[Rfam]
RNA sequence: AUCUUAAUUAGGUUUAAAGGGUACCCAGACGGUCAAUAUAGCUUAUAAAAUGUUAGUACUUGACUAGAGUUUUAUGUAAGAGGGCAGUACUUGAGGAGGAGAGAUGAAAUUUCGUGAUACCAAAGGGACUCUGUAAAGGCGAAGGCAGCCCUCUAUGUAAAAACUGACGUUGAAGGACGAAGGCACAGAGAACAAACAGGAUUAGAUACCCAAGUAGUCUUUGCAGUAAAUGAUGAAUGCCAUAGGUUAGAUGGGUGGGGUAGUCUAGUUGAGUUAAUUUAGCAAACUAAUGAUCUAGACUAGUCCACCAUAUAUUUGGUCUAUAAAUGAAAGUGUAAGCAUUUCACCUCAAGAGUAAUGUGGCAACGCAGGAACUGAAAUCACU
Numbered sequence: 001a002u003c004u005u006a007a008u009u010a011g012g013u014u015u016a017a018a019g020g021g022u023a024c025c026c027a028g029a030c031g032g033u034c035a036a037u038a039u040a041g042c043u044u045a046u047a048a049a050a051u052g053u054u055a056g057u058a059c060u061u062g063a064c065u066a067g068a069g070u071u072u073u074a075u076g077u078a079a080g081a082g083g084g085c086a087g088u089a090c091u092u093g094a095g096g097a098g099g100a101g102a103g104a105u106g107a108a109a110u111u112u113c114g115u116g117a118u119a120c121c122a123a124a125g126g127g128a129c130u131c132u133g134u135a136a137a138g139g140c141g142a143a144g145g146c147a148g149c150c151c152u153c154u155a156u157g158u159a160a161a162a163a164c165u166g167a168c169g170u171u172g173a174a175g176g177a178c179g180a181a182g183g184c185a186c187a188g189a190g191a192a193c194a195a196a197c198a199g200g201a202u203u204a205g206a207u208a209c210c211c212a213a214g215u216a217g218u219c220u221u222u223g224c225a226g227u228a229a230a231u232g233a234u235g236a237a238u239g240c241c242a243u244a245g246g247u248u249a250g251a252u253g254g255g256u257g258g259g260g261u262a263g264u265c266u267a268g269u270u271g272a273g274u275u276a277a278u279u280u281a282g283c284a285a286a287c288u289a290a291u292g293a294u295c296u297a298g299a300c301u302a303g304u305c306c307a308c309c310a311u312a313u314a315u316u317u318g319g320u321c322u323a324u325a326a327a328u329g330a331a332a333g334u335g336u337a338a339g340c341a342u343u344u345c346a347c348c349u350c351a352a353g354a355g356u357a358a359u360g361u362g363g364c365a366a367c368g369c370a371g372g373a374a375c376u377g378a379a380a381u382c383a384c385u
Stems, first nucleotide, its partner, number of pairs: 011348003019345001021178002024175001026172001028171003032064004040060002042056002045053002068165003071161006079154007086130002090126003095121002101112003139146002183224003187220002192218002199211002235344006243323011327334002350377002359370004
A member of the RNA family "Bacterial small subunit ribosomal RNA", 385 nucleotides of a longer RNA. Gene Ontology terms of the family: structural constituent of ribosome and ribosome. Its Rfam clan is "SSU clan".